[Rfam]
RNA sequence: AUGAAGGAUAUGAGAGAGGAUUUUGUCAAAAAAUCGCCGAAGAGGCAAACCUUUGACUGGCAUAAUCAAAGGAGGAACCUUUCAGGCAAAAGGAUCAUAUCCGGACG
Numbered sequence: 001a002u003g004a005a006g007g008a009u010a011u012g013a014g015a016g017a018g019g020a021u022u023u024u025g026u027c028a029a030a031a032a033a034u035c036g037c038c039g040a041a042g043a044g045g046c047a048a049a050c051c052u053u054u055g056a057c058u059g060g061c062a063u064a065a066u067c068a069a070a071g072g073a074g075g076a077a078c079c080u081u082u083c084a085g086g087c088a089a090a091a092g093g094a095u096c097a098u099a100u101c102c103g104g105a106c107g
Stems, first nucleotide, its partner, number of pairs: 006102008020034004036087003039083002043081003
Annotation
The family of this 107-nucleotide sequence from Thermosyntropha lipolytica is "Glycine riboswitch aptamer". The source organism's lineage runs through Bacteria, Clostridia, Syntrophomonadaceae, Thermosyntropha and Thermosyntropha lipolytica. The match comes from Rfam's covariance-model search (62 bits). This family represents the bacterial glycine riboswitch. Glycine riboswitches usually consist of two metabolite-binding aptamers domains with similar structures in tandem. Rfam 15.1 lists 9,425 matches to the family in 5,228 species.